[Rfam]
RNA sequence: UCGUGCAGCCGGGGCGUUAGCGGUGCCUUGUACCCACAAUCCGCUAUAGUGGGGGUGAUAUUGCGCAGAGGGCAUUUGAUUGUGAAGCUGCCCUUGAAAAGUGGCGUUGAAGUUUGGGUCUUACGCGACAGGAAUCUAUGAACCGUGUCAGGGCAGGAAUGCAGCAGCACUAAGUAGAACCUCCUGGGUGCCGUGAGGUUGCCUGGGCCGAGUUAACUGUCAAGGUAACGUUCAUGAGAGAACGUUCGAAGCGCAAUGCACGU
Numbered sequence: 001u002c003g004u005g006c007a008g009c010c011g012g013g014g015c016g017u018u019a020g021c022g023g024u025g026c027c028u029u030g031u032a033c034c035c036a037c038a039a040u041c042c043g044c045u046a047u048a049g050u051g052g053g054g055g056u057g058a059u060a061u062u063g064c065g066c067a068g069a070g071g072g073c074a075u076u077u078g079a080u081u082g083u084g085a086a087g088c089u090g091c092c093c094u095u096g097a098a099a100a101g102u103g104g105c106g107u108u109g110a111a112g113u114u115u116g117g118g119u120c121u122u123a124c125g126c127g128a129c130a131g132g133a134a135u136c137u138a139u140g141a142a143c144c145g146u147g148u149c150a151g152g153g154c155a156g157g158a159a160u161g162c163a164g165c166a167g168c169a170c171u172a173a174g175u176a177g178a179a180c181c182u183c184c185u186g187g188g189u190g191c192c193g194u195g196a197g198g199u200u201g202c203c204u205g206g207g208c209c210g211a212g213u214u215a216a217c218u219g220u221c222a223a224g225g226u227a228a229c230g231u232u233c234a235u236g237a238g239a240g241a242a243c244g245u246u247c248g249a250a251g252c253g254c255a256a257u258g259c260a261c262g263u
Stems, first nucleotide, its partner, number of pairs: 002262006008056003011029008033053005061256006070247004076241002080237006089227002093224005101217002103214003112208008120197006126188001129186005135178005145170004153162003
RNA: Bacterial large signal recognition particle RNA